[Rfam]
Rfam assigns this 88-nucleotide RNA sequence to the family "sRNA-Xcc1".

RNA sequence: GGCGGGAGUCUGUCUGAAUAGAACACCCUUUAGGGGGAAUAGGACAGGCAGUUCCUUUAGCUGUUUUCGAGACUCCCGCCUGCUUCGG
Numbered sequence: 001g002g003c004g005g006g007a008g009u010c011u012g013u014c015u016g017a018a019u020a021g022a023a024c025a026c027c028c029u030u031u032a033g034g035g036g037g038a039a040u041a042g043g044a045c046a047g048g049c050a051g052u053u054c055c056u057u058u059a060g061c062u063g064u065u066u067u068c069g070a071g072a073c074u075c076c077c078g079c080c081u082g083c084u085u086c087g088g
Stems, first nucleotide, its partner, number of pairs: 001080009011046004017040001026036003047065006
For this family Rfam cites "sRNA-Xcc1, an integron-encoded transposon- and plasmid-transferred trans-acting sRNA, is under the positive control of the key virulence regulators HrpG and HrpX of Xanthomonas campestris pathovar campestris" (Chen et al., RNA Biol, 2011). The family's RNA type in Rfam is small RNA.